Shown here is a 266-nucleotide RNA sequence from Molossus molossus, a member of the family "Mason-Pfizer monkey virus packaging signal". Rfam 15.1 lists 2,921 matches to the family in 53 species. The family's RNA type in Rfam is cis-regulatory element. From the family's description: This family represents a group of sequences that are related to the Mason-Pfizer monkey virus (MPMV) packaging signal. The packaging signal is located in the 5' UTR and is required for specific RNA encapsidation. It scores 115 bits against the family's covariance model. NCBI's taxonomy places the organism under Eukaryota, Chordata, Dipnotetrapodomorpha, Tetrapoda, Molossus. Pairs were carried over by alignment from the consensus structure, which was predicted with PFOLD.
RNA sequence: UGGCGCCCAACGUGGGGCUCGAGAACAGGGGAUCCAAUGAAGGACACCAUUCGAGUGGCCAGCAGAAAGGAAAAGAAAAGAGGGAACGACGUGGGAACCUGCUGCGUCUGCAUCCCUCGGGUAAGUGAACAGCGAUUAUGGGUCAAGAAAUGAGCCAACAUAAGAUUUCAUUGAAGGACUAGGAAAGGCUCUCAAGGCACGAGGAGUAAAGGUAAAAAUUAAGCAUUUGUGUCAGUAUUUUGAUUAUAUUAAGGAAGUUUGCCCUU
Number, nucleotide and partner (000 for none) at each position: 001u000002g000003g000004c000005g000006c031007c030008c029009a000010a000011c000012g026013u025014g000015g000016g000017g000018c000019u000020c000021g000022a000023g000024a000025a013026c012027a000028g000029g008030g007031g006032a000033u000034c000035c000036a051037a050038u049039g048040a000041a000042g000043g000044a000045c000046a000047c000048c039049a038050u037051u036052c000053g000054a000055g000056u000057g000058g000059c000060c000061a000062g000063c000064a000065g000066a000067a000068a000069g000070g000071a000072a000073a000074a000075g000076a000077a000078a000079a000080g118081a117082g115083g114084g000085a000086a000087c110088g000089a000090c106091g105092u104093g103094g102095g000096a000097a000098c000099c000100u000101g000102c094103u093104g092105c091106g090107u000108c000109u000110g087111c000112a000113u000114c083115c082116c000117u081118c080119g000120g000121g000122u000123a000124a000125g000126u145127g144128a143129a000130c142131a000132g000133c140134g139135a000136u000137u000138a000139u134140g133141g000142g130143u128144c127145a126146a000147g000148a000149a000150a000151u000152g192153a000154g189155c188156c187157a000158a000159c000160a000161u000162a000163a000164g000165a000166u000167u000168u000169c000170a000171u000172u000173g000174a000175a000176g000177g000178a000179c000180u000181a000182g000183g000184a000185a000186a000187g156188g155189c154190u000191c000192u152193c000194a000195a000196g000197g000198c000199a000200c242201g241202a240203g239204g238205a000206g236207u235208a000209a000210a228211g227212g226213u225214a000215a000216a000217a000218a000219u000220u000221a000222a000223g000224c000225a213226u212227u211228u210229g000230u000231g000232u000233c000234a000235g207236u206237a000238u204239u203240u202241u201242g200243a000244u000245u000246a000247u000248a000249u000250u000251a266252a265253g264254g263255a000256a000257g000258u000259u000260u000261g000262c000263c254264c253265u252266u251